Eukaryotic large subunit ribosomal RNA: a 499-nucleotide part of an RNA from Strongyloides ratti.
[Rfam]
RNA sequence: CCGGCCGAAGUUUCCCCCAGGAUAGCUGAAACUGAUAUACAGAUACAUCCGGUAAAGCUAAUGUUUAGAGGAAUAGGGAAUAAUAUAUUCUUUAUCUAUUUACAAACUAUAAAUGGGUGUGAUAUUAUGAUUGCUUAAUUGAAUCAUAAUUUCGAUUGUAUAGUUUCAAGUGGGCCAUUUUUGGUAAGCAGAACUGGCGACGUGGGAUGAACCAAAAGUAUUGUUAAAGUGCCUAAAUUUUUGCUCAUCAGACCCCAUAAAAAGUGUUGUUUGAUCCUGACAGCAGGGCGGUGGCCAUGGAAGUCGGAAUCCGCUAAGGAUCGUGUAACAACUCACCUGCCGAAUCAAGCAGCCUUGAAAAUGGAUGGCGCUUGAGCAAAAUACUUAGACAAUACCAUAUAUUUAUUUUUUUUUAAAAAAAAUAUAUGUGUAGGCUGGCGUGAUAAUAGCAUUGAAGGUUAUAAGCGUAAGCUUGACUGGAGCUGUUAUUAGUGCAGAU
Numbered sequence: 001c002c003g004g005c006c007g008a009a010g011u012u013u014c015c016c017c018c019a020g021g022a023u024a025g026c027u028g029a030a031a032c033u034g035a036u037a038u039a040c041a042g043a044u045a046c047a048u049c050c051g052g053u054a055a056a057g058c059u060a061a062u063g064u065u066u067a068g069a070g071g072a073a074u075a076g077g078g079a080a081u082a083a084u085a086u087a088u089u090c091u092u093u094a095u096c097u098a099u100u101u102a103c104a105a106a107c108u109a110u111a112a113a114u115g116g117g118u119g120u121g122a123u124a125u126u127a128u129g130a131u132u133g134c135u136u137a138a139u140u141g142a143a144u145c146a147u148a149a150u151u152u153c154g155a156u157u158g159u160a161u162a163g164u165u166u167c168a169a170g171u172g173g174g175c176c177a178u179u180u181u182u183g184g185u186a187a188g189c190a191g192a193a194c195u196g197g198c199g200a201c202g203u204g205g206g207a208u209g210a211a212c213c214a215a216a217a218g219u220a221u222u223g224u225u226a227a228a229g230u231g232c233c234u235a236a237a238u239u240u241u242u243g244c245u246c247a248u249c250a251g252a253c254c255c256c257a258u259a260a261a262a263a264g265u266g267u268u269g270u271u272u273g274a275u276c277c278u279g280a281c282a283g284c285a286g287g288g289c290g291g292u293g294g295c296c297a298u299g300g301a302a303g304u305c306g307g308a309a310u311c312c313g314c315u316a317a318g319g320a321u322c323g324u325g326u327a328a329c330a331a332c333u334c335a336c337c338u339g340c341c342g343a344a345u346c347a348a349g350c351a352g353c354c355u356u357g358a359a360a361a362u363g364g365a366u367g368g369c370g371c372u373u374g375a376g377c378a379a380a381a382u383a384c385u386u387a388g389a390c391a392a393u394a395c396c397a398u399a400u401a402u403u404u405a406u407u408u409u410u411u412u413u414u415a416a417a418a419a420a421a422a423u424a425u426a427u428g429u430g431u432a433g434g435c436u437g438g439c440g441u442g443a444u445a446a447u448a449g450c451a452u453u454g455a456a457g458g459u460u461a462u463a464a465g466c467g468u469a470a471g472c473u474u475g476a477c478u479g480g481a482g483c484u485g486u487u488a489u490u491a492g493u494g495c496a497g498a499u
Stems, first nucleotide, its partner, number of pairs: 001438006011024001013022003027168007044121007055110001056108002062104003067099001069097003074094006081087001124150009174198004179193005203214003218395005224389001228385003237382001239381001242378003262356003266353010283340005289313003295307002314318001319334001323332002396428009439494001441491010457478002464473003
Taxonomically the source falls in Strongyloides (Eukaryota, Nematoda, Panagrolaimomorpha, Strongyloidoidea).
Rfam's curators put it in the seed alignment.